[Rfam]
RNA sequence: UUGAAUAAAAUUAUAAGAACUUAUAUAUGUCCAUAAUUGGUUGGACGUUUCUACAAACUACCGUAAUAGUUGUCUAUAAGUUCACCUUGACGGGAG
Numbered sequence: 001u002u003g004a005a006u007a008a009a010a011u012u013a014u015a016a017g018a019a020c021u022u023a024u025a026u027a028u029g030u031c032c033a034u035a036a037u038u039g040g041u042u043g044g045a046c047g048u049u050u051c052u053a054c055a056a057a058c059u060a061c062c063g064u065a066a067u068a069g070u071u072g073u074c075u076a077u078a079a080g081u082u083c084a085c086c087u088u089g090a091c092g093g094g095a096g
Base pairs, nucleotide, nucleotide: 018082019081020080021079022078023077024076025075029046030045031044032043033042056071057070058069059068060067
RNA: Purine riboswitch aptamer
Organism: Lachnotalea sp. AF33-28